This 89-nucleotide RNA from Geomesophilobacter sediminis belongs to the Rfam family "c-di-GMP-I riboswitch aptamer". The literature on the family includes a 2007 paper in Nucleic Acids Res by Weinberg et al., "Identification of 22 candidate structured RNAs in bacteria using the CMfinder comparative genomics pipeline". Lineage of the source: Bacteria > Thermodesulfobacteriota > Desulfuromonadia > Geobacterales > Geomesophilobacter. Its family is annotated with cyclic-di-GMP binding in the Gene Ontology.
RNA sequence: GCCUGAUAAAGGCAAACCACCCGAAAGGGUGGGACGCAAAGCCGCUGGCCUAACUCCCCUAACCGGGAUAUGGCAGCAGGGCUGCCGGG
Numbered sequence: 001g002c003c004u005g006a007u008a009a010a011g012g013c014a015a016a017c018c019a020c021c022c023g024a025a026a027g028g029g030u031g032g033g034a035c036g037c038a039a040a041g042c043c044g045c046u047g048g049c050c051u052a053a054c055u056c057c058c059c060u061a062a063c064c065g066g067g068a069u070a071u072g073g074c075a076g077c078a079g080g081g082c083u084g085c086c087g088g089g
Stems, first nucleotide, its partner, number of pairs: 012037002017032006040083004045079003048074003055068004